[Rfam]
RNA sequence: UAGAGACACAUCAUUGAGUGUAGCAUUGAUGAAGUUUCACUCUCAUCUCAGAUAGAUGCUUAAUUUAUGGUGUUAUUAUCAUCGACGCUGCACUCAAUCAUGUUUUUC
Numbered sequence: 001u002a003g004a005g006a007c008a009c010a011u012c013a014u015u016g017a018g019u020g021u022a023g024c025a026u027u028g029a030u031g032a033a034g035u036u037u038c039a040c041u042c043u044c045a046u047c048u049c050a051g052a053u054a055g056a057u058g059c060u061u062a063a064u065u066u067a068u069g070g071u072g073u074u075a076u077u078a079u080c081a082u083c084g085a086c087g088c089u090g091c092a093c094u095c096a097a098u099c100a101u102g103u104u105u106u107u108c
Base pairs, nucleotide, nucleotide: 006105008103009102010101011100013098014097015096016095017094018093019092020091021090022089023088024087026085027084028083030081031080032079
The family of this 108-nucleotide RNA sequence from Glycine max is "MIR397 microRNA precursor family". NCBI's taxonomy places the organism under Eukaryota, Pentapetalae, fabids, Fabaceae, Glycine subgen. Soja. It scores 74 bits against the family's covariance model. The family's consensus secondary structure was predicted with WAR. On this family, see Mica et al., BMC Genomics 2009: "High throughput approaches reveal splicing of primary microRNA transcripts and tissue specific expression of mature microRNAs in Vitis vinifera".